[Rfam]
RNA sequence: AUACUCUGGUUUCUCUUCAGAUCGUAUAAAUCUUUCGCCUUUUACUAAAGAUUUCCGUGGAGAGGAACGAAACUGGAGCCUAUUAUACA
Numbered sequence: 001a002u003a004c005u006c007u008g009g010u011u012u013c014u015c016u017u018c019a020g021a022u023c024g025u026a027u028a029a030a031u032c033u034u035u036c037g038c039c040u041u042u043u044a045c046u047a048a049a050g051a052u053u054u055c056c057g058u059g060g061a062g063a064g065g066a067a068c069g070a071a072a073c074u075g076g077a078g079c080c081u082a083u084u085a086u087a088c089a
Stems, first nucleotide, its partner, number of pairs: 004078003009068011028054008
RNA: U5 spliceosomal RNA
Organism: Moschus moschiferus